[Rfam]
About this RNA
This 120-nucleotide RNA sequence from Cornus chinensis belongs to the Rfam family "Plastid-psbA-1 3UTR RNA". On this family, see Richter et al., Plant Commun 2023: "Retrograde signaling in plants: A critical review focusing on the GUN pathway and beyond". Plastid psbA-1 is a non-coding RNA (ncRNA) present in plastids. It was identified in inverted repeat sequences in the 3 prime untranslate region (3UTR) of photosystem II quinone-binding protein (psbA).
RNA sequence: UUGAAGCUCCAUCUACAAAUGGAUAAGACUUUUUCUUAGUGUAUAUGAGUUCUUGAAAGUAAAAUAAAGGAUCAAAACCAAUUUCUUGUUCUAUCAAGAAAUUGGUUUUGAUCCUUUAUU
Number, nucleotide and partner (000 for none) at each position: 001u000002u000003g000004a000005a000006g000007c000008u023009c022010c021011a020012u019013c000014u000015a000016c000017a000018a000019a012020u011021g010022g009023a008024u000025a000026a000027g000028a000029c000030u000031u000032u000033u000034u000035c000036u000037u000038a000039g000040u000041g000042u000043a000044u000045a000046u000047g000048a000049g000050u000051u000052c000053u000054u000055g000056a000057a000058a000059g000060u000061a000062a000063a000064a000065u000066a117067a116068a115069g114070g113071a112072u111073c110074a109075a108076a107077a106078c105079c104080a103081a102082u000083u100084u099085c098086u097087u096088g000089u000090u000091c000092u000093a000094u000095c000096a087097a086098g085099a084100a083101a000102u081103u080104g079105g078106u077107u076108u075109u074110g073111a072112u071113c070114c069115u068116u067117u066118a000119u000120u000
It is one of the family's seed sequences.